[Rfam]
RNA sequence: UGGCGCCUGUGGUGGGGCUCCUGGCAUGAAGGGCUCAACGAGGGAGCCAUCCUGAGAUGCACAUGUAAGAAGGGAACUAAGAGUUUUGUGACCAACGCUACGUGGGAACCUGCCACACUGCUCAAGUCACGGUAAGUGGAUGGCGAUCCUUUUCCUUUUCUCUUGGCACGGGUCAGGCAUUAAGUGACACUUGUGUCAGGUUUAACUAAAGCUUUAAAGACAAGAGGGAUAAAGGCUAAAAAAAUAGAUUUAUUAUAGUACUUUCAAUUUAUUCAUAAGGUUUGCCCUU
Numbered sequence: 001u002g003g004c005g006c007c008u009g010u011g012g013u014g015g016g017g018c019u020c021c022u023g024g025c026a027u028g029a030a031g032g033g034c035u036c037a038a039c040g041a042g043g044g045a046g047c048c049a050u051c052c053u054g055a056g057a058u059g060c061a062c063a064u065g066u067a068a069g070a071a072g073g074g075a076a077c078u079a080a081g082a083g084u085u086u087u088g089u090g091a092c093c094a095a096c097g098c099u100a101c102g103u104g105g106g107a108a109c110c111u112g113c114c115a116c117a118c119u120g121c122u123c124a125a126g127u128c129a130c131g132g133u134a135a136g137u138g139g140a141u142g143g144c145g146a147u148c149c150u151u152u153u154c155c156u157u158u159u160c161u162c163u164u165g166g167c168a169c170g171g172g173u174c175a176g177g178c179a180u181u182a183a184g185u186g187a188c189a190c191u192u193g194u195g196u197c198a199g200g201u202u203u204a205a206c207u208a209a210a211g212c213u214u215u216a217a218a219g220a221c222a223a224g225a226g227g228g229a230u231a232a233a234g235g236c237u238a239a240a241a242a243a244a245u246a247g248a249u250u251u252a253u254u255a256u257a258g259u260a261c262u263u264u265c266a267a268u269u270u271a272u273u274c275a276u277a278a279g280g281u282u283u284g285c286c287c288u289u
Base pairs, nucleotide, nucleotide: 006032007031008030012027013026014025033047034046035045036044085136086135091133092132097128098126099125102116103115104114105113145174146173148172149171181216182215183214184212185211224264225263226262227261229259230258233251234250235249237247277288279286280285
This 289-nucleotide sequence from Cavia porcellus belongs to the Rfam family "Mason-Pfizer monkey virus packaging signal". Rfam's curators write: This family represents a group of sequences that are related to the Mason-Pfizer monkey virus (MPMV) packaging signal. Rfam 15.1 lists 2,921 matches to the family in 53 species. A search with the family's covariance model found it, with a score of 57 bits.